The family of this 130-nucleotide RNA from Salmo trutta is "Small nucleolar RNA ACA64". Its family is annotated with nucleolus and RNA processing in the Gene Ontology. By type it is an H/ACA-box small nucleolar RNA. The family's consensus secondary structure was predicted with WAR. Taxonomically the source falls in Salmo (Eukaryota, Opisthokonta, Clupeocephala, Euteleosteomorpha).
RNA sequence: ACAGUCUGAAAAUGACCUGGGGUUUAUCAGGGGUCUAGGGGGAGAGAACUGUGUCUACACUAUUGUGGUACGUUAAGCUUAUUGCCUGCUCUGUUUGUGACGGUGUAAUAAGACCCAAGUGCUCACAAUC
Numbered sequence: 001a002c003a004g005u006c007u008g009a010a011a012a013u014g015a016c017c018u019g020g021g022g023u024u025u026a027u028c029a030g031g032g033g034u035c036u037a038g039g040g041g042g043a044g045a046g047a048a049c050u051g052u053g054u055c056u057a058c059a060c061u062a063u064u065g066u067g068g069u070a071c072g073u074u075a076a077g078c079u080u081a082u083u084g085c086c087u088g089c090u091c092u093g094u095u096u097g098u099g100a101c102g103g104u105g106u107a108a109u110a111a112g113a114c115c116c117a118a119g120u121g122c123u124c125a126c127a128a129u130c
Stems, first nucleotide, its partner, number of pairs: 006051001008049001013043001016040001021035004067123001069121003073117001079111005087102002089099001